[Rfam]
RNA sequence: ACUAACCUUCAGGGCAGGGUGAAAUUCCUGACCGGCGGUGAUGGCAUGAGAAUGCCCGAGCCCGCGACUCCCCGUACGCCUAAGAGCGGGGACUGACUUGGUGAAAAUCCAAGGCCGACGGUUACAGUCCGGAUGGAAGAAGGUUGCA
Numbered sequence: 001a002c003u004a005a006c007c008u009u010c011a012g013g014g015c016a017g018g019g020u021g022a023a024a025u026u027c028c029u030g031a032c033c034g035g036c037g038g039u040g041a042u043g044g045c046a047u048g049a050g051a052a053u054g055c056c057c058g059a060g061c062c063c064g065c066g067a068c069u070c071c072c073c074g075u076a077c078g079c080c081u082a083a084g085a086g087c088g089g090g091g092a093c094u095g096a097c098u099u100g101g102u103g104a105a106a107a108u109c110c111a112a113g114g115c116c117g118a119c120g121g122u123u124a125c126a127g128u129c130c131g132g133a134u135g136g137a138a139g140a141a142g143g144u145u146g147c148a
Base pairs, nucleotide, nucleotide: 003146004145005144006143007142008141009140010139017029018028019027031128032127033117034116035065036064037063038062060115061114069092070091071090072089097113098112099111100110101109119131120130121129
Rfam assigns this 148-nucleotide RNA from Brevibacillus fluminis to the family "FMN riboswitch aptamer (RFN element)". Lineage of the source: Bacteria > Bacilli > Caryophanales > Paenibacillaceae > Brevibacillus. A search with the family's covariance model found it, with a score of 113 bits. About the family: The RFN element is a highly conserved domain that is found frequently in the 5'-untranslated regions of prokaryotic mRNAs that encode for flavin mononucleotide (FMN) biosynthesis and transport proteins. This element is a metabolite-dependent riboswitch that directly binds FMN in the absence of proteins. In Bacillus subtilis, the riboswitch most likely controls gene expression by causing premature transcription termination within the 5' untranslated region of the ribDEAHT operon and precluding access to the ribosome-binding site of ypaA mRNA.The FMN riboswitch structure, reported in present an FMN-bound six-stem junction, adopts a butterfly-like scaffold, stapled together by opposingly directed but nearly identically folded peripheral domains.